RNA sequence: GCCUGCGAACCGUGAGGAAACGUCUCCCCUUGCGGAUCCGGGAAAUACCAGAAGAAAAGGAG
Numbered sequence: 001g002c003c004u005g006c007g008a009a010c011c012g013u014g015a016g017g018a019a020a021c022g023u024c025u026c027c028c029c030u031u032g033c034g035g036a037u038c039c040g041g042g043a044a045a046u047a048c049c050a051g052a053a054g055a056a057a058a059g060g061a062g
Base pairs, nucleotide, nucleotide: 003041004040005039007038008037010035011034012033013032014031015030016029017028

Rfam assigns this 62-nucleotide sequence from Geobacter argillaceus to the family "L20-Deltaproteobacteria ribosomal protein leader". By type it is a cis-regulatory leader. It scores 63 bits against the family's covariance model. The organism belongs to Geobacter, within Bacteria.